[Rfam]
RNA sequence: CACUUCGGUCCGGAGUUGAUGGGUUAUCAAUAAGUGUUUCGUUUCCUGUUCGCAGGAGACAACCCCGGUUUCCUUGUGAAACCAAAAAACCGUUCUCUCGGGAACAAAACCUCUUCUCGUGUUCUGUUAAAGAAUACAAAACCCUUCCCAUCAACACCAACUUGAUCGAAGU
Numbered sequence: 001c002a003c004u005u006c007g008g009u010c011c012g013g014a015g016u017u018g019a020u021g022g023g024u025u026a027u028c029a030a031u032a033a034g035u036g037u038u039u040c041g042u043u044u045c046c047u048g049u050u051c052g053c054a055g056g057a058g059a060c061a062a063c064c065c066c067g068g069u070u071u072c073c074u075u076g077u078g079a080a081a082c083c084a085a086a087a088a089a090c091c092g093u094u095c096u097c098u099c100g101g102g103a104a105c106a107a108a109a110c111c112u113c114u115u116c117u118c119g120u121g122u123u124c125u126g127u128u129a130a131a132g133a134a135u136a137c138a139a140a141a142c143c144c145u146u147c148c149c150a151u152c153a154a155c156a157c158c159a160a161c162u163u164g165a166u167c168g169a170a171g172u
Stems, first nucleotide, its partner, number of pairs: 002172003006168005012158002015155009042059007069081004
This 172-nucleotide sequence from Caenorhabditis briggsae belongs to the Rfam family "Nematode sRNA ceN72-3_ceN74-2". By type it is a small RNA. Pairs were carried over by alignment from the consensus structure, which was predicted with WAR. The match comes from Rfam's covariance-model search (81 bits).